[Rfam]
RNA: DUF805b RNA
Organism: Chitinophaga pinensis
RNA sequence: AGGGCGGAUCCGAAAAGCCUUUAAAAGAGUAGGGA
Numbered sequence: 001a002g003g004g005c006g007g008a009u010c011c012g013a014a015a016a017g018c019c020u021u022u023a024a025a026a027g028a029g030u031a032g033g034g035a
Base pairs, nucleotide, nucleotide: 002020003019004018005017010033011032